[Rfam]
RNA sequence: UUCUUAUCAAGAGUGGCUGAGGGUAAAGGCCCUAUGAAGCCCGGCAACCGGUCCAUCCGACAACGGACGACAAGCCAGAGAGACGCUCUUUUCCUGCGCUCCCUAUUGUUUGCCCAGUGCGGAGCGGACGUCUUUGGUGCCAAUUCCUUCGGAGAUCCAGCGGAUUUCCGGCAGAUGAGAG
Numbered sequence: 001u002u003c004u005u006a007u008c009a010a011g012a013g014u015g016g017c018u019g020a021g022g023g024u025a026a027a028g029g030c031c032c033u034a035u036g037a038a039g040c041c042c043g044g045c046a047a048c049c050g051g052u053c054c055a056u057c058c059g060a061c062a063a064c065g066g067a068c069g070a071c072a073a074g075c076c077a078g079a080g081a082g083a084c085g086c087u088c089u090u091u092u093c094c095u096g097c098g099c100u101c102c103c104u105a106u107u108g109u110u111u112g113c114c115c116a117g118u119g120c121g122g123a124g125c126g127g128a129c130g131u132c133u134u135u136g137g138u139g140c141c142a143a144u145u146c147c148u149u150c151g152g153a154g155a156u157c158c159a160g161c162g163g164a165u166u167u168c169c170g171g172c173a174g175a176u177g178a179g180a181g
Base pairs, nucleotide, nucleotide: 001181002180003179004178005177006176007175008174013042015041016040017039021032022031023030026149027148028147029146043141044140045139046138048137049136050133051132053130145173150170151169152168153167154166155165156164157163
Description: Rfam assigns this 181-nucleotide RNA sequence from Paenibacillus sp. YN15 to the family "SAM riboswitch aptamer (S box leader)". The source organism's lineage runs through Bacteria, Bacillati, Caryophanales, Paenibacillaceae and Paenibacillus.